[Rfam]
RNA sequence: UCGGCCCCGGUUCACGUGAGAGCAAACCGCACCCACGACCCGGCGCC
Number, nucleotide and partner (000 for none) at each position: 001u000002c000003g047004g046005c045006c000007c043008c042009g041010g040011u000012u000013c000014a000015c037016g036017u035018g034019a000020g032021a000022g030023c029024a000025a000026a000027c000028c000029g023030c022031a000032c020033c000034c018035a017036c016037g015038a000039c000040c010041c009042g008043g007044c000045g005046c004047c003

This 47-nucleotide RNA sequence from Streptomyces sp. SID8455 belongs to the Rfam family "L31-Actinobacteria ribosomal protein leader". It scores 51 bits against the family's covariance model. The base pairs follow the family's consensus structure, which is taken from published work. NCBI's taxonomy places the organism under Bacteria, Bacillati, Actinomycetota, Actinomycetes, Streptomyces.